[Rfam]
RNA sequence: AUCUUCACGGUGACGCUGCGCCCGGUCUCAAAUCCCGCUUCUUCCUGCCAGUCACCCUUAAGGUGCUGGCUGGGGAUUUGUGAGUAACAGGCGGUCAUGCAGGUUUCGCUGUUGAUAUGGCGGACGCUG
Numbered sequence: 001a002u003c004u005u006c007a008c009g010g011u012g013a014c015g016c017u018g019c020g021c022c023c024g025g026u027c028u029c030a031a032a033u034c035c036c037g038c039u040u041c042u043u044c045c046u047g048c049c050a051g052u053c054a055c056c057c058u059u060a061a062g063g064u065g066c067u068g069g070c071u072g073g074g075g076a077u078u079u080g081u082g083a084g085u086a087a088c089a090g091g092c093g094g095u096c097a098u099g100c101a102g103g104u105u106u107c108g109c110u111g112u113u114g115a116u117a118u119g120g121c122g123g124a125c126g127c128u129g
Stems, first nucleotide, its partner, number of pairs: 027082001029080008049072004053065004107122003
The family of this 129-nucleotide RNA from Salmonella enterica is "isrA Hfq binding RNA". On this family, see Padalon-Brauch et al., Nucleic Acids Res 2008: "Small RNAs encoded within genetic islands of Salmonella typhimurium show host-induced expression and role in virulence".